Overview
U5 spliceosomal RNA: a 118-nucleotide sequence from Callithrix jacchus. The family has 180 seed sequences and 28,527 matches in Rfam 15.1. NCBI's taxonomy places the organism under Eukaryota, Euteleostomi, Eutheria, Haplorrhini, Callithrix. Pairs were carried over by alignment from the consensus structure, which is taken from published work.
[Rfam]
RNA sequence: AUACUUUGUUUUCUUUUCAAAUAAUGUAGAUCUUUUGCCUUUCACUAAAGAUUUCCAUGGGGACAAAUAGAUUUGAGUCACUAUGGGACUUUUUGAGGCAUUGUGUUUUACCGAUGCU
Numbered sequence: 001a002u003a004c005u006u007u008g009u010u011u012u013c014u015u016u017u018c019a020a021a022u023a024a025u026g027u028a029g030a031u032c033u034u035u036u037g038c039c040u041u042u043c044a045c046u047a048a049a050g051a052u053u054u055c056c057a058u059g060g061g062g063a064c065a066a067a068u069a070g071a072u073u074u075g076a077g078u079c080a081c082u083a084u085g086g087g088a089c090u091u092u093u094u095g096a097g098g099c100a101u102u103g104u105g106u107u108u109u110a111c112c113g114a115u116g117c118u
Stems, first nucleotide, its partner, number of pairs: 003078004010067003014063006028054008096118001098117006